[Rfam]
UnaL2 LINE 3' element: a 54-nucleotide sequence from Esox lucius. Rfam links the family to the GO term transposition, RNA-mediated. It is annotated as a cis-regulatory element. Taxonomically the source falls in Esox (Eukaryota, Opisthokonta, Eumetazoa, Esociformes). The family's consensus secondary structure is taken from published work.
Nucleotides: 054
Base pairs, nucleotide, nucleotide: 013043014041015040016039020036021035022034023033025031
Number, partner (000 for none) and nucleotide at each position: 001000u002000g003000c004000g005000c006000u007000a008000a009000c010000u011000a012000c013043u014041g015040u016039a017000a018000g019000u020036c021035g022034c023033u024000c025031u026000g027000g028000a029000u030000a031025a032000c033023a034022g035021c036020g037000u038000c039016u040015g041014c042000u043013a044000a045000a046000u047000g048000a049000c050000a051000a052000a053000u054000g